[Rfam]
RNA sequence: ACACGAGGAAGGAGGUGGUCCGAAAGUGCAUUCUUUACGGAUUCGUGAGGUGGCUGCUCGCUAGCAGCGCACCAACCAGCCACGCUGAUUGAGCAGUGCGCGCUGGUCACUACCAAGCAGUCACCCGGCCCGUGGGCGCUCCGGACAUCAUCCGACCGGAGACGCGGAACUCGUUCCGCACCGCCCACGGGUCGCUUGCG
Numbered sequence: 001a002c003a004c005g006a007g008g009a010a011g012g013a014g015g016u017g018g019u020c021c022g023a024a025a026g027u028g029c030a031u032u033c034u035u036u037a038c039g040g041a042u043u044c045g046u047g048a049g050g051u052g053g054c055u056g057c058u059c060g061c062u063a064g065c066a067g068c069g070c071a072c073c074a075a076c077c078a079g080c081c082a083c084g085c086u087g088a089u090u091g092a093g094c095a096g097u098g099c100g101c102g103c104u105g106g107u108c109a110c111u112a113c114c115a116a117g118c119a120g121u122c123a124c125c126c127g128g129c130c131c132g133u134g135g136g137c138g139c140u141c142c143g144g145a146c147a148u149c150a151u152c153c154g155a156c157c158g159g160a161g162a163c164g165c166g167g168a169a170c171u172c173g174u175u176c177c178g179c180a181c182c183g184c185c186c187a188c189g190g191g192u193c194g195c196u197u198g199c200g
Base pairs, nucleotide, nucleotide: 014058015057016056017055018054019053060107061106062105063104064103065102067101068100069099070098072096126194127193128192129191130190131189132188133187134186135185136184137183138182140160141159142158143157144156

Record summary: Rfam assigns this 200-nucleotide RNA sequence from Nocardioides panacis to the family "Actinobacteria sRNA Ms_IGR-5". The base pairs follow the family's consensus structure.